[Rfam]
RNA sequence: UUAAAUCCUCGUUAGGCGAGGCUCCUAUACAAACAUAAGCCAUUGCCCGGAAACGUCGAAAGACGCCAAUGGGUUACCAGGGAUUGCCGGAUUAAGGCUUUACCUAAUAUGGCUGAGCUCUUGCUCUACGUUGUAUAGUGCUAAAGCUAAACUAGGGGGAUUGAU
Numbered sequence: 001u002u003a004a005a006u007c008c009u010c011g012u013u014a015g016g017c018g019a020g021g022c023u024c025c026u027a028u029a030c031a032a033a034c035a036u037a038a039g040c041c042a043u044u045g046c047c048c049g050g051a052a053a054c055g056u057c058g059a060a061a062g063a064c065g066c067c068a069a070u071g072g073g074u075u076a077c078c079a080g081g082g083a084u085u086g087c088c089g090g091a092u093u094a095a096g097g098c099u100u101u102a103c104c105u106a107a108u109a110u111g112g113c114u115g116a117g118c119u120c121u122u123g124c125u126c127u128a129c130g131u132u133g134u135a136u137a138g139u140g141c142u143a144a145a146g147c148u149a150a151a152c153u154a155g156g157g158g159g160a161u162u163g164a165u
Stems, first nucleotide, its partner, number of pairs: 005161006011152002013095001015148003020142003025138008039113005045074005054065004080104002083101001086098003115126003
A member of the RNA family "M-box riboswitch aptamer (ykoK leader)" from Paenibacillus sp. GP183, 165 nucleotides long. The base pairs follow the family's consensus structure. A search with the family's covariance model found it, with a score of 154 bits. The family has 159 seed sequences and 1,095 matches in Rfam 15.1. Rfam's curators write: M-box riboswitch, also know as ykoK leader is described as a metaloregulatory RNA that sense divalent metals and function as a genetic control element of genes related to divalent metal transport in bacteria. It was first reported upstream of the B.subtilis ykoK gene and genes with related functions in other bacteria.